This 231-nucleotide sequence from Trifolium subterraneum belongs to the Rfam family "MIR2655 microRNA precursor family". The family's consensus secondary structure was predicted with RNAalifold.
RNA sequence: CCCUUAUAUUUUAAAAGUUUCAAAUUGGUCCCUUAUCUUUAUUUUAGGUUUCAAAUUGGUCCCUUCCGUCAAUUUUUUUACUGUUACUGUUAAAAUUGGACAUGUGUCAUUUGUCCAAGUGUGCCACGUGUCCAAAUUUAACGGAAAUAGUUAAAAAAUUGACGGAAUGGACCAACUUGAAACCUAAAAUAAAGAUAAGGGACCAACUUGAAACUUUUAAAAGAUAAGGGA
Numbered sequence: 001c002c003c004u005u006a007u008a009u010u011u012u013a014a015a016a017g018u019u020u021c022a023a024a025u026u027g028g029u030c031c032c033u034u035a036u037c038u039u040u041a042u043u044u045u046a047g048g049u050u051u052c053a054a055a056u057u058g059g060u061c062c063c064u065u066c067c068g069u070c071a072a073u074u075u076u077u078u079u080a081c082u083g084u085u086a087c088u089g090u091u092a093a094a095a096u097u098g099g100a101c102a103u104g105u106g107u108c109a110u111u112u113g114u115c116c117a118a119g120u121g122u123g124c125c126a127c128g129u130g131u132c133c134a135a136a137u138u139u140a141a142c143g144g145a146a147a148u149a150g151u152u153a154a155a156a157a158a159u160u161g162a163c164g165g166a167a168u169g170g171a172c173c174a175a176c177u178u179g180a181a182a183c184c185u186a187a188a189a190u191a192a193a194g195a196u197a198a199g200g201g202a203c204c205a206a207c208u209u210g211a212a213a214c215u216u217u218u219a220a221a222a223g224a225u226a227a228g229g230g231a
Stems, first nucleotide, its partner, number of pairs: 002229006023208001025206001027204003031200013045186003
The source organism's lineage runs through Eukaryota, Magnoliopsida, rosids, Fabales and Trifolium.